[Rfam]
Rfam assigns this 131-nucleotide sequence from Pseudomonas syringae group genomosp. 3 to the family "rmf RNA".
Lineage of the source: Bacteria > Pseudomonadati > Gammaproteobacteria > Pseudomonas > Pseudomonas syringae pv. tomato.
Nucleotides: 131
Base pairs, nucleotide, nucleotide: 021043022042023041024040025039028036029035049072050071051070052069053068054067055066078093079092080091081090082089083088095111096110097109098108099107100106
Number, partner (000 for none) and nucleotide at each position: 001000u002000u003000g004000g005000u006000u007000a008000g009000a010000a011000a012000u013000c014000a015000a016000c017000u018000c019000a020000g021043g022042u023041c024040a025039u026000u027000u028036c029035c030000g031000c032000a033000a034000u035029g036028g037000u038000u039025a040024u041023g042022g043021c044000a045000u046000c047000a048000a049072g050071g051070c052069c053068c054067g055066c056000c057000a058000c059000g060000c061000c062000g063000g064000c065000a066055g067054c068053g069052g070051g071050c072049c073000c074000c075000a076000a077000c078093g079092g080091c081090a082089g083088a084000a085000g086000a087000c088083u089082c090081u091080g092079c093078c094000c095111g096110a097109c098108c099107c100106c101000a102000c103000c104000a105000c106100g107099g108098g109097g110096u111095c112000u113000c114000a115000g116000g117000g118000a119000u120000a121000u122000u123000a124000c125000a126000g127000u128000c129000a130000a131000c
The family's RNA type in Rfam is cis-regulatory element. It is one of the family's seed sequences.